Annotation: The record is a 50-nucleotide RNA sequence from Cereibacter sphaeroides, which matches "SAM/SAH riboswitch aptamer" in Rfam. A reference for the family is Weickhmann et al. (2019), "The structure of the SAM/SAH-binding riboswitch", Nucleic Acids Res. It is one of the family's seed sequences.

[Rfam]
RNA sequence: CAACCGUCACAACGGCUUCCUGGCGUGACGGGGUUAACCCCAACGGAGCA
Numbered sequence: 001c002a003a004c005c006g007u008c009a010c011a012a013c014g015g016c017u018u019c020c021u022g023g024c025g026u027g028a029c030g031g032g033g034u035u036a037a038c039c040c041c042a043a044c045g046g047a048g049c050a
Base pairs, nucleotide, nucleotide: 004031005030006029007028008027009026010025013022014021015049016048017047019046020045